The record is a 65-nucleotide RNA from Bacillus sp. J14TS2, which matches "Bacillaceae-1 RNA" in Rfam. The family has 95 seed sequences and 5,721 matches in Rfam 15.1. Pairs were carried over by alignment from the consensus structure, which is taken from published work.

[Rfam]
RNA sequence: UAAAGUAGAACAUCGGCUAAAAGCACGCCGUCCUGGCGUAACGCCGAUGGACUCGCUCCUGCGAG
Numbered sequence: 001u002a003a004a005g006u007a008g009a010a011c012a013u014c015g016g017c018u019a020a021a022a023g024c025a026c027g028c029c030g031u032c033c034u035g036g037c038g039u040a041a042c043g044c045c046g047a048u049g050g051a052c053u054c055g056c057u058c059c060u061g062c063g064a065g
Base pairs, nucleotide, nucleotide: 011049012048013047014046015045016044017043025039026038027037028036029035052065053064054063055062056061